Source information:
Rfam assigns this 182-nucleotide sequence from Entamoeba histolytica to the family "U2 spliceosomal RNA". The base pairs follow the family's consensus structure, which is taken from published work. Its Rfam clan is "U2 clan". Rfam classes the family as a spliceosomal small nuclear RNA.
RNA sequence: UCACCUUCUCGGCCUUUAUGGCUUUGAUCAAGUGUAGUAUCUGUUCUAGCAAGCUUAACAUCUUGCUUGCCCUUACGGGGGUAAAAGAAAAAUAAUUUUUAGAGGGAGGUUAAGGGAAUUGAAGGCAAGCCUUUUAUGAACUUAACGAGGAUGUGCAUGGAAACAUGAUGCGUCUACCCUAA
Numbered sequence: 001u002c003a004c005c006u007u008c009u010c011g012g013c014c015u016u017u018a019u020g021g022c023u024u025u026g027a028u029c030a031a032g033u034g035u036a037g038u039a040u041c042u043g044u045u046c047u048a049g050c051a052a053g054c055u056u057a058a059c060a061u062c063u064u065g066c067u068u069g070c071c072c073u074u075a076c077g078g079g080g081g082u083a084a085a086a087g088a089a090a091a092a093u094a095a096u097u098u099u100u101a102g103a104g105g106g107a108g109g110u111u112a113a114g115g116g117a118a119u120u121g122a123a124g125g126c127a128a129g130c131c132u133u134u135u136a137u138g139a140a141c142u143u144a145a146c147g148a149g150g151a152u153g154u155g156c157a158u159g160g161a162a163a164c165a166u167g168a169u170g171c172g173u174c175u176a177c178c179c180u181a182a
Base pairs, nucleotide, nucleotide: 007027008026011023012022013021014020048067049066050065051064052063053062068083069082070081071080072079073078109146110145111144112143113142114141122133123132124131125130149175150174151173152172153171154170156167157166158165159164